[Rfam]
RNA sequence: CUCCCAUGAGGAAAUCCCCAAACGUCUGACCCCGCCGAGGGGCCCAGGACCUGCAAAGGUGGAACCCCCUGGAGCCCCCGGGGGGAGAAGAGGACGAGGAGUCCCAGAGGGGACGGUCUGAGGGGG
Numbered sequence: 001c002u003c004c005c006a007u008g009a010g011g012a013a014a015u016c017c018c019c020a021a022a023c024g025u026c027u028g029a030c031c032c033c034g035c036c037g038a039g040g041g042g043c044c045c046a047g048g049a050c051c052u053g054c055a056a057a058g059g060u061g062g063a064a065c066c067c068c069c070u071g072g073a074g075c076c077c078c079c080g081g082g083g084g085g086a087g088a089a090g091a092g093g094a095c096g097a098g099g100a101g102u103c104c105c106a107g108a109g110g111g112g113a114c115g116g117u118c119u120g121a122g123g124g125g126g
Stems, first nucleotide, its partner, number of pairs: 001125004
Rfam assigns this 126-nucleotide RNA from Dasyornis broadbenti to the family "Small nucleolar RNA SNORD22".
The family's RNA type in Rfam is C/D-box small nucleolar RNA.
A search with the family's covariance model found it, with a score of 70 bits.
Its family is annotated with nucleolus and RNA processing in the Gene Ontology.